[Rfam]
RNA sequence: CAUGGCCCGCGUGACUGGCGAGGGAAGGUGGGACACCACCGGGGAGCGCGGGUCGGGAUGGCCGCUCGCCUGGGCGAGGCAG
Number, nucleotide and partner (000 for none) at each position: 001c000002a000003u055004g054005g053006c052007c051008c050009g049010c048011g047012u046013g000014a000015c043016u042017g070018g069019c068020g067021a066022g000023g000024g000025a000026a000027g000028g039029u038030g037031g036032g000033a000034c000035a000036c031037c030038a029039c028040c000041g000042g016043g015044g000045a000046g012047c011048g010049c009050g008051g007052g006053u005054c004055g003056g000057g000058a000059u077060g000061g075062c074063c073064g000065c000066u021067c020068g019069c018070c017071u000072g000073g063074g062075c061076g000077a059078g000079g000080c000081a000082g000